The family of this 110-nucleotide RNA sequence from Oryza sativa is "mir-399 microRNA precursor family". The literature on the family includes a 2004 paper in Mol Cell by Jones-Rhoades and Bartel, "Computational Identification of Plant MicroRNAs and Their Targets, Including a Stress-Induced miRNA". Lineage of the source: Eukaryota > Streptophyta > Liliopsida > Oryzeae > Oryza sativa. mir-399 was identified in both Arabidopsis thaliana and Oryza sativa computationally and was later experimentally verified. mir-399 is thought to target mRNAs coding for a phosphatase transporter. The mature sequence is excised from the 3' arm of the hairpin. Pairs were carried over by alignment from the consensus structure, which was predicted with PFOLD. The sequence is in the family's curated seed alignment. The family has 13 seed sequences and 2,396 matches in Rfam 15.1.
RNA sequence: CGGCGAAUUACAGGGCGGUUUCUCCUUUGGCACGUACGGAGGCAAGGCAUGCGGUGAAAAAUCUCUAGCUAGCCAUGCGUGCCAAAGGAGAAUUGCCCUGCGAUUCACCA
Numbered sequence: 001c002g003g004c005g006a007a008u009u010a011c012a013g014g015g016c017g018g019u020u021u022c023u024c025c026u027u028u029g030g031c032a033c034g035u036a037c038g039g040a041g042g043c044a045a046g047g048c049a050u051g052c053g054g055u056g057a058a059a060a061a062u063c064u065c066u067a068g069c070u071a072g073c074c075a076u077g078c079g080u081g082c083c084a085a086a087g088g089a090g091a092a093u094u095g096c097c098c099u100g101c102g103a104u105u106c107a108c109c110a
Stems, first nucleotide, its partner, number of pairs: 005106005011100009022090004028084009